[Rfam]
RNA sequence: UCUUCGAGGACACCCACCAUCACCGAACUUCUUCAGCCCGACGCUCGCGUCGGGCUUUU
Numbered sequence: 001u002c003u004u005c006g007a008g009g010a011c012a013c014c015c016a017c018c019a020u021c022a023c024c025g026a027a028c029u030u031c032u033u034c035a036g037c038c039c040g041a042c043g044c045u046c047g048c049g050u051c052g053g054g055c056u057u058u059u
Stems, first nucleotide, its partner, number of pairs: 035056008